[Rfam]
Nucleotides: 078
Stems, first nucleotide, its partner, number of pairs: 002077001005074002008071001011068001013066001016064002020061003025057006
Number, partner (000 for none) and nucleotide at each position: 001000a002077g003000c004000c005074u006073u007000c008071u009000g010000a011068a012000c013066c014000u015000g016064u017063g018000c019000u020061g021060a022059g023000a024000g025057u026056u027055c028054g029053u030052c031000a032000g033000a034000c035000a036000c037000c038000a039000g040000a041000c042000u043000g044000u045000c046000a047000g048000u049000a050000a051000u052030g053029a054028u055027g056026a057025g058000a059022c060021u061020u062000c063017c064016a065000a066013g067000a068011u069000a070000a071008a072000u073006a074005a075000a076000a077002c078000g
Rfam assigns this 78-nucleotide RNA sequence from Schistosoma bovis to the family "mir-3492 microRNA precursor family". A search with the family's covariance model found it, with a score of 48 bits. Gene Ontology terms of the family: miRNA-mediated post-transcriptional gene silencing and RISC complex. Taxonomically the source falls in Schistosoma (Eukaryota, Metazoa, Spiralia, Rhabditophora).